RNA sequence: CACAUUGCCUGAACAAUAGCACUGACUGUGUUUUGAAAGCAGCAAGUGCUAUUUUUGAGGCAAUGUCA
Numbered sequence: 001c002a003c004a005u006u007g008c009c010u011g012a013a014c015a016a017u018a019g020c021a022c023u024g025a026c027u028g029u030g031u032u033u034u035g036a037a038a039g040c041a042g043c044a045a046g047u048g049c050u051a052u053u054u055u056u057g058a059g060g061c062a063a064u065g066u067c068a
Stems, first nucleotide, its partner, number of pairs: 004064007013055001015053009026042002

The family of this 68-nucleotide RNA sequence from Channa argus is "miR-430 microRNA precursor family". Rfam links the family to the GO terms RISC complex and miRNA-mediated post-transcriptional gene silencing. The literature on the family includes a 2005 paper in Science by Giraldez et al., "MicroRNAs regulate brain morphogenesis in zebrafish". A search with the family's covariance model found it, with a score of 48 bits.